A member of the RNA family "Alphaproteobacterial ar14" from Falsihalocynthiibacter arcticus, 136 nucleotides long. Gene Ontology term of the family: biological process involved in symbiotic interaction. NCBI's taxonomy places the organism under Bacteria, Pseudomonadati, Rhodobacterales, Roseobacteraceae, Falsihalocynthiibacter. Pairs were carried over by alignment from the consensus structure. For this family Rfam cites "A conserved alpha-proteobacterial small RNA contributes to osmoadaptation and symbiotic efficiency of rhizobia on legume roots" (Robledo et al., Environ Microbiol, 2017).
RNA sequence: CUAUUGCGAAGGAUCUCUCUCCUCCUCCCUGAGAUCCGACGUAACCUGCGCCGACCCACUCUCCUCCUCCCAGAGGCUUGGCGAGGCGCACACAUAAGACGGCGAUGUUCACCUCCUCCCGAACAUCGCCGUUUUU
Dot-bracket structure: ......((..(((((((.............)))))))..))........(((((.((.(.............).)).))))).................(((((((((((..........))))))))))).....